[Rfam]
RNA sequence: UCCCAACGAGGAAGCGUACCCAAAACAUAUGUAGUGUUGUAUGUCACUUUAAAACGCAUCAGUUGU
Numbered sequence: 001u002c003c004c005a006a007c008g009a010g011g012a013a014g015c016g017u018a019c020c021c022a023a024a025a026c027a028u029a030u031g032u033a034g035u036g037u038u039g040u041a042u043g044u045c046a047c048u049u050u051a052a053a054a055c056g057c058a059u060c061a062g063u064u065g066u
Stems, first nucleotide, its partner, number of pairs: 014060001031050001033048004
RNA: Small nucleolar RNA U49
Organism: Papaver nudicaule